[Rfam]
Nucleotides: 080
Stems, first nucleotide, its partner, number of pairs: 001080007
Number, partner (000 for none) and nucleotide at each position: 001080u002079g003078c004077u005076g006075u007074u008000u009000g010000u011000g012000a013000u014000g015000a016000u017000u018000a019000u020000u021000u022000a023000u024000u025000u026000g027000a028000c029000a030000a031000u032000g033000g034000g035000a036000a037000u038000c039000u040000c041000u042000c043000u044000g045000a046000a047000u048000u049000a050000g051000a052000c053000u054000g055000a056000a057000a058000g059000a060000g061000a062000u063000a064000c065000u066000u067000u068000u069000u070000c071000u072000g073000a074007g075006a076005c077004a078003g079002c080001a
The record is an 80-nucleotide sequence from Chanos chanos, which matches "Small nucleolar RNA SNORD79" in Rfam. Rfam classes the family as a C/D-box small nucleolar RNA. Lineage of the source: Eukaryota > Opisthokonta > Bilateria > Deuterostomia > Chanos. Pairs were carried over by alignment from the consensus structure, which was predicted with PFOLD. About the family: snoRNA U79 or Z22 is found in intron 7 of the gas5 gene in humans and is also present in mice. Clan: SNORD74 clan. A reference for the family is Galardi et al. (2002), "Purified box C/D snoRNPs are able to reproduce site-specific 2'-O-methylation of target RNA in vitro", Mol Cell Biol.